Rfam assigns this 143-nucleotide RNA from Mus musculus to the family "Small nucleolar RNA SNORA48". The family is grouped with related families in Rfam's "SNORA48 clan". The organism belongs to Mus, within Eukaryota. Rfam describes the family as follows. The snoRNA ACA 48 has been identified to guide pseudouridylation of the residue U3797 in the 28S rRNA subunit. It scores 70 bits against the family's covariance model. The literature on the family includes a 1997 paper in J Mol Biol by Ofengand and Bakin, "Mapping to nucleotide resolution of pseudouridine residues in large subunit ribosomal RNAs from representative eukaryotes, prokaryotes, archaebacteria, mitochondria and chloroplasts". The family's RNA type in Rfam is H/ACA-box small nucleolar RNA.
RNA sequence: ACUCCCUGGUAAUGGGCAAAGGGACACCUUGUUGUUGGUGGUGUUCUUAUAUCAGUCAGGGGCAGAGCAGAUGAAAGUCCUUUUUCAUCCUAUCUUGAUUUCUGGCUUGGCGGCCAAAGCUGUUUAAUGCCUAGGACCCAUAA
Numbered sequence: 001a002c003u004c005c006c007u008g009g010u011a012a013u014g015g016g017c018a019a020a021g022g023g024a025c026a027c028c029u030u031g032u033u034g035u036u037g038g039u040g041g042u043g044u045u046c047u048u049a050u051a052u053c054a055g056u057c058a059g060g061g062g063c064a065g066a067g068c069a070g071a072u073g074a075a076a077g078u079c080c081u082u083u084u085u086c087a088u089c090c091u092a093u094c095u096u097g098a099u100u101u102c103u104g105g106c107u108u109g110g111c112g113g114c115c116a117a118a119g120c121u122g123u124u125u126a127a128u129g130c131c132u133a134g135g136a137c138c139c140a141u142a143a
Base pairs, nucleotide, nucleotide: 003062004061005060006059007058008057013054014053015052019048020047021046023042025040026039027038028037084136085135086134097131099129103127105125108122109121111119